The record is a 118-nucleotide sequence from Firmicutes bacterium CAG:238, which matches "FMN riboswitch aptamer (RFN element)" in Rfam. The organism belongs to Bacillota, within Bacteria.
RNA sequence: AAUCUGUUUCAGGGCGAGGUGAAAUUCCUCACCGGCGGUAUAGUCCGCGAACGCCGAGAGGCGCCGAGCAGGUGAAAUUCCUGCACCGACGGUAUAGUCCGGAUGAGAGAAACAAAGG
Numbered sequence: 001a002a003u004c005u006g007u008u009u010c011a012g013g014g015c016g017a018g019g020u021g022a023a024a025u026u027c028c029u030c031a032c033c034g035g036c037g038g039u040a041u042a043g044u045c046c047g048c049g050a051a052c053g054c055c056g057a058g059a060g061g062c063g064c065c066g067a068g069c070a071g072g073u074g075a076a077a078u079u080c081c082u083g084c085a086c087c088g089a090c091g092g093u094a095u096a097g098u099c100c101g102g103a104u105g106a107g108a109g110a111a112a113c114a115a116a117g118g
Stems, first nucleotide, its partner, number of pairs: 003116001005114006017029003031098002033088002035048004043086002052063002068084005090101003